[Rfam]
RNA sequence: AGAGUCGGCCGGACAGUCGCUGUGUCGCUUUUGCGGCAUGGAGGAAAGUCCGGGCUCCACAGGGCAGGGUGCCAGGUAACGCCUGGGGGUUGGGCUGGCGACGGUGCAACUACGGAAAGUGCCGCAGAAAACAGACCGCCGAUGGCCCUUAACGGGGAUCAGGCAAGGGUGAAAAGGUGCGGUAAGAGCGCACCGCGUGGCUGGCAACAGGCACGGCACGGCAAACCCCACCUGGAGCAAGGCCAAAUAGGGGUGCGAUGGCGUGGCCCGCGCUGCACCCGGGUAGGCCGCACGAGGCGUCCGGUGACGGGCGUCCCAGAUGAAUGACUGUCCUCGACAGAACCCGGCUUACAGGCCGGCUCUUCUC
Numbered sequence: 001a002g003a004g005u006c007g008g009c010c011g012g013a014c015a016g017u018c019g020c021u022g023u024g025u026c027g028c029u030u031u032u033g034c035g036g037c038a039u040g041g042a043g044g045a046a047a048g049u050c051c052g053g054g055c056u057c058c059a060c061a062g063g064g065c066a067g068g069g070u071g072c073c074a075g076g077u078a079a080c081g082c083c084u085g086g087g088g089g090u091u092g093g094g095c096u097g098g099c100g101a102c103g104g105u106g107c108a109a110c111u112a113c114g115g116a117a118a119g120u121g122c123c124g125c126a127g128a129a130a131a132c133a134g135a136c137c138g139c140c141g142a143u144g145g146c147c148c149u150u151a152a153c154g155g156g157g158a159u160c161a162g163g164c165a166a167g168g169g170u171g172a173a174a175a176g177g178u179g180c181g182g183u184a185a186g187a188g189c190g191c192a193c194c195g196c197g198u199g200g201c202u203g204g205c206a207a208c209a210g211g212c213a214c215g216g217c218a219c220g221g222c223a224a225a226c227c228c229c230a231c232c233u234g235g236a237g238c239a240a241g242g243c244c245a246a247a248u249a250g251g252g253g254u255g256c257g258a259u260g261g262c263g264u265g266g267c268c269c270g271c272g273c274u275g276c277a278c279c280c281g282g283g284u285a286g287g288c289c290g291c292a293c294g295a296g297g298c299g300u301c302c303g304g305u306g307a308c309g310g311g312c313g314u315c316c317c318a319g320a321u322g323a324a325u326g327a328c329u330g331u332c333c334u335c336g337a338c339a340g341a342a343c344c345c346g347g348c349u350u351a352c353a354g355g356c357c358g359g360c361u362c363u364u365c366u367c
Stems, first nucleotide, its partner, number of pairs: 001363010011352001012332007020041009046350003050347005055237004062269004067233005072086005087113001088111004114228002119226002121222003136168002138164003143161003147157002176194006195217001196215004201210003241289004251280006260274005296315008